The record is a 66-nucleotide RNA sequence from Mesorhizobium sp. L-8-10, which matches "ybhL leader" in Rfam. The organism belongs to Mesorhizobium, within Bacteria. By type it is a cis-regulatory leader. A reference for the family is Corbino et al. (2005), "Evidence for a second class of S-adenosylmethionine riboswitches and other regulatory RNA motifs in alpha-proteobacteria", Genome Biol. Its family is annotated with regulation of gene expression in the Gene Ontology. Rfam's curators write: This family is a putative regulatory RNA structure that is found upstream of an uncharacterized membrane protein in alpha-proteobacteria.
RNA sequence: GAGGCAUGCUGGAGUCCCGCCAGCGGCGCCUGGGCGAUCGUAGGUCCGACACCCGACGGGACAGUA
Dot-bracket structure: .............((((((.....((....(((((.......).))))...))...))))))....